RNA sequence: ACGAAAAGGAGUGUUAUCUUAAGCCAAUGAAAUUCUAAUCCUGUAUUAUAUGAAAAAAUGAAGAAAGCUAUCCAAUUCUUGGGUAGAAACUAUUUUUUCGGACGGGAUUCGUAUGUUCAUUUCGCAUGAUAACUCUAGCUAUAGCCUUUUUUGGCGUAGUUUCGCGGAUUCCU
Numbered sequence: 001a002c003g004a005a006a007a008g009g010a011g012u013g014u015u016a017u018c019u020u021a022a023g024c025c026a027a028u029g030a031a032a033u034u035c036u037a038a039u040c041c042u043g044u045a046u047u048a049u050a051u052g053a054a055a056a057a058a059u060g061a062a063g064a065a066a067g068c069u070a071u072c073c074a075a076u077u078c079u080u081g082g083g084u085a086g087a088a089a090c091u092a093u094u095u096u097u098u099c100g101g102a103c104g105g106g107a108u109u110c111g112u113a114u115g116u117u118c119a120u121u122u123c124g125c126a127u128g129a130u131a132a133c134u135c136u137a138g139c140u141a142u143a144g145c146c147u148u149u150u151u152u153g154g155c156g157u158a159g160u161u162u163c164g165c166g167g168a169u170u171c172c173u
Stems, first nucleotide, its partner, number of pairs: 007173006013133006023125002026121006035111001037109008051100010068086006138160005144155003